c-di-GMP-I riboswitch aptamer: an 87-nucleotide RNA sequence from Clostridium sp. BL8. The literature on the family includes a 2007 paper in Nucleic Acids Res by Weinberg et al., "Identification of 22 candidate structured RNAs in bacteria using the CMfinder comparative genomics pipeline". It scores 78 bits against the family's covariance model. Pairs were carried over by alignment from the consensus structure, which is taken from published work. The organism belongs to Clostridium, within Bacteria. Gene Ontology term of the family: cyclic-di-GMP binding.
RNA sequence: CAUAAAAAUAGGCAAACUUGUCGAAAGAUAGGGACGCAAAGCUAUGGGUCUAAGGAAAUAAUAUUCUAUGAUUGCCAGGUUGCACGU
Numbered sequence: 001c002a003u004a005a006a007a008a009u010a011g012g013c014a015a016a017c018u019u020g021u022c023g024a025a026a027g028a029u030a031g032g033g034a035c036g037c038a039a040a041g042c043u044a045u046g047g048g049u050c051u052a053a054g055g056a057a058a059u060a061a062u063a064u065u066c067u068a069u070g071a072u073u074g075c076c077a078g079g080u081u082g083c084a085c086g087u
Stems, first nucleotide, its partner, number of pairs: 012037002017032006040081004045077003048072003055066003